A member of the RNA family "Streptomyces RNA 2736" from Streptomyces montanisoli, 66 nucleotides long. The family's RNA type in Rfam is small RNA. NCBI's taxonomy places the organism under Bacteria, Actinomycetota, Actinomycetes, Kitasatosporales, Streptomyces.
[Rfam]
RNA sequence: CGCCCGGCCCGGAUCCCGUGGGGGGAAUCCGCUCCGGGGGAUAUGGAAAGCGCCCCGCCUACCGAC
Numbered sequence: 001c002g003c004c005c006g007g008c009c010c011g012g013a014u015c016c017c018g019u020g021g022g023g024g025g026a027a028u029c030c031g032c033u034c035c036g037g038g039g040g041a042u043a044u045g046g047a048a049a050g051c052g053c054c055c056c057g058c059c060u061a062c063c064g065a066c
Stems, first nucleotide, its partner, number of pairs: 001064002003038005010031005015025003045054002

From the family's description: Identified by deep sequencing of transcriptome at the end of exponential growth phase. A search with the family's covariance model found it, with a score of 53 bits. For this family Rfam cites "Deep sequencing-based identification of small non-coding RNAs in Streptomyces coelicolor" (Vockenhuber et al., RNA Biol, 2011).